[Rfam]
RNA: Glutamine-II riboswitch aptamer
RNA sequence: CAACGUUCACCUCACUUCUGUGAGGCGCAGAUCAACCAGGCCAAGGAACGGGGACCUGGA
Numbered sequence: 001c002a003a004c005g006u007u008c009a010c011c012u013c014a015c016u017u018c019u020g021u022g023a024g025g026c027g028c029a030g031a032u033c034a035a036c037c038a039g040g041c042c043a044a045g046g047a048a049c050g051g052g053g054a055c056c057u058g059g060a
Stems, first nucleotide, its partner, number of pairs: 004050005010025005036059005041053002